Shown here is a 189-nucleotide sequence from Propithecus coquereli, a member of the family "Small nucleolar RNA SNORA81". The organism belongs to Propithecus, within Eukaryota. By type it is an H/ACA-box small nucleolar RNA.

RNA sequence: UUUAUCUUGUUUAAGCUCUGUACUAAAAUCGCAGAAACUAAUAUUAUAUCUUAACAUUUGUAAUGAAGCUAGCAGAGAAACACAAGAAAAACAACAACAACUGAACAACUGUACCAGAUAGGAGAAAAAUUGAGUUGAACUUCUUUCUUAAGUCUAGAGUACAUUGUUCUAAGAUUUGGUACAAUAUCU
Numbered sequence: 001u002u003u004a005u006c007u008u009g010u011u012u013a014a015g016c017u018c019u020g021u022a023c024u025a026a027a028a029u030c031g032c033a034g035a036a037a038c039u040a041a042u043a044u045u046a047u048a049u050c051u052u053a054a055c056a057u058u059u060g061u062a063a064u065g066a067a068g069c070u071a072g073c074a075g076a077g078a079a080a081c082a083c084a085a086g087a088a089a090a091a092c093a094a095c096a097a098c099a100a101c102u103g104a105a106c107a108a109c110u111g112u113a114c115c116a117g118a119u120a121g122g123a124g125a126a127a128a129a130u131u132g133a134g135u136u137g138a139a140c141u142u143c144u145u146u147c148u149u150a151a152g153u154c155u156a157g158a159g160u161a162c163a164u165u166g167u168u169c170u171a172a173g174a175u176u177u178g179g180u181a182c183a184a185u186a187u188c189u
Stems, first nucleotide, its partner, number of pairs: 018077002021074001023072003029066003034058002039053003043049002110183009132160001136156002139153001